[Rfam]
Nucleotides: 090
Base pairs, nucleotide, nucleotide: 012037013036017032018031019030020029021028022027040084041083042082043081046080047079048078049075050074051073056069057068058067059066
Number, partner (000 for none) and nucleotide at each position: 001000c002000c003000g004000c005000g006000c007000u008000a009000a010000g011000g012037g013036c014000a015000a016000a017032c018031c019030c020029a021028u022027c023000g024000a025000a026000a027022g028021g029020u030019g031018g032017g033000g034000a035000c036013g037012c038000a039000a040084a041083g042082c043081u044000a045000u046080a047079g048078g049075g050074u051073c052000u053000a054000a055000a056069g057068u058067g059066c060000c061000c062000a063000c064000c065000g066059g067058c068057a069056c070000u071000a072000u073051g074050a075049c076000a077000g078048c079047c080046u081043g082042g083041c084040u085000g086000c087000c088000g089000c090000g
This 90-nucleotide sequence from Desulfofundulus thermobenzoicus belongs to the Rfam family "c-di-GMP-I riboswitch aptamer". The organism belongs to Desulfofundulus, within Bacteria. Pairs were carried over by alignment from the consensus structure, which is taken from published work.